[Rfam]
RNA sequence: UGGGUUCCUGGGGGGUGGACUCAGCCUAUUCCACCUCCCUCAGCUGAGCCUAGAGUAGAGGGGCCAGGCCUCCUCCCCGGGAAAGGCCUUUACAUAAGGAGCCUAGCCUGGGCUAUCCUAGCCUCACAUUU
Dot-bracket structure: ((.......((((((((((..........)))))))))).....)).............(((((.(((...(((....(((....................))).....)))....))).)))))......
RNA: Small Cajal body specific RNA 21
Organism: Prolemur simus